Overview:
Rfam assigns this 274-nucleotide RNA sequence from Mus musculus to the family "Mason-Pfizer monkey virus packaging signal". On this family, see Mustafa et al., Virus Res 2004: "Mutational analysis of the predicted secondary RNA structure of the Mason-Pfizer monkey virus packaging signal". Rfam links the family to the GO term viral genome packaging. The source organism's lineage runs through Eukaryota, Eumetazoa, Muroidea, Muridae and Mus.

[Rfam]
RNA sequence: UGGUGCCCAACAGUGAGACUCAAGUACAAAGGGACCAGUGAAGAUCACUGCAGUGUUUUUGGUUGGCUGACAAAUUUUGUGUGGAAGAAGGCUUAUGCGGAACCUGCCUCCUCGACUAAGGAUCCUGGUAAGUUUGUGAUGAUCAUGGAAAAGGCACCGAGGAGCCAUGAAUUACUUGUGGAAUGGUUGAAAAAGGCUUUAAAGGCACGAGGGAUAAAGGAUAAAAUAUAUGAUUUGCUUGCAUUUUUUGAUUUUGUAAAAGAGAUUUGUCCAU
Numbered sequence: 001u002g003g004u005g006c007c008c009a010a011c012a013g014u015g016a017g018a019c020u021c022a023a024g025u026a027c028a029a030a031g032g033g034a035c036c037a038g039u040g041a042a043g044a045u046c047a048c049u050g051c052a053g054u055g056u057u058u059u060u061g062g063u064u065g066g067c068u069g070a071c072a073a074a075u076u077u078u079g080u081g082u083g084g085a086a087g088a089a090g091g092c093u094u095a096u097g098c099g100g101a102a103c104c105u106g107c108c109u110c111c112u113c114g115a116c117u118a119a120g121g122a123u124c125c126u127g128g129u130a131a132g133u134u135u136g137u138g139a140u141g142a143u144c145a146u147g148g149a150a151a152a153g154g155c156a157c158c159g160a161g162g163a164g165c166c167a168u169g170a171a172u173u174a175c176u177u178g179u180g181g182a183a184u185g186g187u188u189g190a191a192a193a194a195g196g197c198u199u200u201a202a203a204g205g206c207a208c209g210a211g212g213g214a215u216a217a218a219g220g221a222u223a224a225a226a227u228a229u230a231u232g233a234u235u236u237g238c239u240u241g242c243a244u245u246u247u248u249u250g251a252u253u254u255u256g257u258a259a260a261a262g263a264g265a266u267u268u269g270u271c272c273a274u
Base pairs, nucleotide, nucleotide: 006033007032008031013027014026015025036050037049038048039047089126090125091124092121093120097116098114099107133152134151135150137148139146140145159200160199161197208250209249210248211247212246213245214244215243218236219235220234222232223231259274262271263270